Shown here is a 140-nucleotide RNA sequence from Cicer arietinum, a member of the family "Small nucleolar RNA snoR136". The organism belongs to Cicer, within Eukaryota. A reference for the family is Chen and Wu (2009), "Mining small RNA sequencing data: a new approach to identify small nucleolar RNAs in Arabidopsis", Nucleic Acids Res.

[Rfam]
RNA sequence: UUGGCUUCAAAAUUUUGUGUUAUUUCCGCUUCCACUUUUUAGUGUGGUUUGCAAUUUUUAAUUGAAGCCUAGAAUUGUGUUCCCCUCGCUAUCCGAUGCUCCAAAUUGAUGUUGCAUUUGGACGUCGGGGAACAAAAUUU
Numbered sequence: 001u002u003g004g005c006u007u008c009a010a011a012a013u014u015u016u017g018u019g020u021u022a023u024u025u026c027c028g029c030u031u032c033c034a035c036u037u038u039u040u041a042g043u044g045u046g047g048u049u050u051g052c053a054a055u056u057u058u059u060a061a062u063u064g065a066a067g068c069c070u071a072g073a074a075u076u077g078u079g080u081u082c083c084c085c086u087c088g089c090u091a092u093c094c095g096a097u098g099c100u101c102c103a104a105a106u107u108g109a110u111g112u113u114g115c116a117u118u119u120g121g122a123c124g125u126c127g128g129g130g131a132a133c134a135a136a137a138u139u140u
Base pairs, nucleotide, nucleotide: 001072002071003069004068005067008064009063012062013061019056022055023054024053026051028049032047033046034045079133080132081131082130083129084128085127087124088123092122093121094120095119096118102111103110